RNA sequence: CUUGAUCGAACCCAGCCGCAGCGGGCCGUGCGUGCGCUCCUGGCCAUAGGUGGCGAGGACGGCCUGCGCCUC
Numbered sequence: 001c002u003u004g005a006u007c008g009a010a011c012c013c014a015g016c017c018g019c020a021g022c023g024g025g026c027c028g029u030g031c032g033u034g035c036g037c038u039c040c041u042g043g044c045c046a047u048a049g050g051u052g053g054c055g056a057g058g059a060c061g062g063c064c065u066g067c068g069c070c071u072c
Stems, first nucleotide, its partner, number of pairs: 016024002031068003035062001040057002044053003
This 72-nucleotide RNA from Streptomyces sp. SID8352 belongs to the Rfam family "ASpks TB sRNA". It is annotated as an antisense RNA. The base pairs follow the family's consensus structure, which is taken from published work. Lineage of the source: Bacteria > Bacillati > Actinomycetota > Streptomycetaceae > Streptomyces. It scores 63 bits against the family's covariance model.